[Rfam]
RNA: azaaromatic riboswitch aptamer (yjdF RNA)
RNA sequence: AUCUAGAAAUGUAAAAACACAUUUGGGUUGGUAAUCCCAAUGCAAAUUUAAAUUUUUGUCAGUAACCUUCCUCCUCAGGUCGUCCAUCAUUUCAAUUUUCUAU
Numbered sequence: 001a002u003c004u005a006g007a008a009a010u011g012u013a014a015a016a017a018c019a020c021a022u023u024u025g026g027g028u029u030g031g032u033a034a035u036c037c038c039a040a041u042g043c044a045a046a047u048u049u050a051a052a053u054u055u056u057u058g059u060c061a062g063u064a065a066c067c068u069u070c071c072u073c074c075u076c077a078g079g080u081c082g083u084c085c086a087u088c089a090u091u092u093c094a095a096u097u098u099u100c101u102a103u
Stems, first nucleotide, its partner, number of pairs: 004095001006093006023040005042059005070079003